Rfam assigns this 78-nucleotide RNA sequence from Medicago truncatula to the family "MIR5286 microRNA precursor family". Rfam links the family to the GO terms RISC complex and miRNA-mediated post-transcriptional gene silencing.
[Rfam]
RNA sequence: AAUAACUCCAGUUGUCCAGUGUUUGAUUUGUAAAACAGUUUCAGGAAGAGGACAAACUGGAGGCAAGGGACAGGACAA
Numbered sequence: 001a002a003u004a005a006c007u008c009c010a011g012u013u014g015u016c017c018a019g020u021g022u023u024u025g026a027u028u029u030g031u032a033a034a035a036c037a038g039u040u041u042c043a044g045g046a047a048g049a050g051g052a053c054a055a056a057c058u059g060g061a062g063g064c065a066a067g068g069g070a071c072a073g074g075a076c077a078a
Stems, first nucleotide, its partner, number of pairs: 006062008014053004020047001022045005028038004